[Rfam]
RNA sequence: CGACCCGGCGGCCCACGACGGAAAAGACUUAAGUACCAGGGCAAGUACCCCUCCCAUCCCCUCCAGCCUCCCCGCCGCGCACCCGUCACUCACACGGGUGAUCUGUGCCAACUGGGCUGGAUUUGGGGCCGGUUGCCUGGCAUAUGCUCACCGCCGACAACCCCAGACAUGCGACGGCCCCCGGCCGGGACUAGCGAUCCCGAUCGAGGGCCUGACCACCGAGGAAGAAGACGCUUCCCG
Numbered sequence: 001c002g003a004c005c006c007g008g009c010g011g012c013c014c015a016c017g018a019c020g021g022a023a024a025a026g027a028c029u030u031a032a033g034u035a036c037c038a039g040g041g042c043a044a045g046u047a048c049c050c051c052u053c054c055c056a057u058c059c060c061c062u063c064c065a066g067c068c069u070c071c072c073c074g075c076c077g078c079g080c081a082c083c084c085g086u087c088a089c090u091c092a093c094a095c096g097g098g099u100g101a102u103c104u105g106u107g108c109c110a111a112c113u114g115g116g117c118u119g120g121a122u123u124u125g126g127g128g129c130c131g132g133u134u135g136c137c138u139g140g141c142a143u144a145u146g147c148u149c150a151c152c153g154c155c156g157a158c159a160a161c162c163c164c165a166g167a168c169a170u171g172c173g174a175c176g177g178c179c180c181c182c183g184g185c186c187g188g189g190a191c192u193a194g195c196g197a198u199c200c201c202g203a204u205c206g207a208g209g210g211c212c213u214g215a216c217c218a219c220c221g222a223g224g225a226a227g228a229a230g231a232c233g234c235u236u237c238c239c240g
Base pairs, nucleotide, nucleotide: 007220008219010217019074020073021072086101087100088099089098090097091096116152118150119149120148176212177211178210179209180208182206183205187201188200189199190198223238224237225236226235227234
Annotation:
The family of this 240-nucleotide RNA from Streptomyces sp. QHH-9511 is "Streptomyces sRNA 4677". The literature on the family includes a 2014 paper in PLoS One by Hindra et al., "Complex intra-operonic dynamics mediated by a small RNA in Streptomyces coelicolor". A search with the family's covariance model found it, with a score of 112 bits. Pairs were carried over by alignment from the consensus structure. Rfam describes the family as follows. Located in the intergenic region between anti-sigma factor SCO4677 gene and a putative regulatory protein gene SCO4676. scr4677 expression requires the SCO4677 activity and scr4677 sRNA itself seem to affect the levels of the SCO4676-associated transcripts.